[Rfam]
RNA sequence: GUGGCAGCUUGGCUGUUGGAUGUGUGGCGUCAUUUACUUGAACCUUUAGAAGUGACAUCAAAUAUCCAGCAGCUAAACUGCCAU
Number, nucleotide and partner (000 for none) at each position: 001g000002u083003g082004g081005c080006a079007g078008c000009u000010u000011g000012g000013c000014u000015g070016u069017u068018g067019g066020a065021u064022g063023u000024g000025u060026g059027g058028c000029g056030u000031c054032a053033u052034u000035u000036a000037c000038u049039u000040g000041a000042a000043c000044c000045u000046u000047u000048a000049g038050a000051a000052g033053u032054g031055a000056c029057a000058u027059c026060a025061a000062a000063u022064a021065u020066c019067c018068a017069g016070c015071a000072g000073c000074u000075a000076a000077a000078c007079u006080g005081c004082c003083a002084u000
RNA: mir-489 microRNA precursor family
Organism: Spermophilus dauricus